Shown here is an 83-nucleotide sequence, a member of the family "Small nucleolar RNA Z221/R21b".
Rfam links the family to the GO terms nucleolus and RNA processing.
It is annotated as a C/D-box small nucleolar RNA.
For this family Rfam cites "The high diversity of snoRNAs in plants: identification and comparative study of 120 snoRNA genes from Oryza sativa" (Chen et al., Nucleic Acids Res, 2003).
[Rfam]
RNA sequence: AGGCUGUGAUGAUUGAGAAUGUCAUGCACCACUCUGAUUUUUUGUGCUGAUAAUCAUCUCUAACCCAUAUUUUAUCUGAGCCU
Numbered sequence: 001a002g003g004c005u006g007u008g009a010u011g012a013u014u015g016a017g018a019a020u021g022u023c024a025u026g027c028a029c030c031a032c033u034c035u036g037a038u039u040u041u042u043u044g045u046g047c048u049g050a051u052a053a054u055c056a057u058c059u060c061u062a063a064c065c066c067a068u069a070u071u072u073u074a075u076c077u078g079a080g081c082c083u
Base pairs, nucleotide, nucleotide: 001083002082003081004080

It is one of the family's seed sequences. The base pairs follow the family's consensus structure, which was predicted with WAR.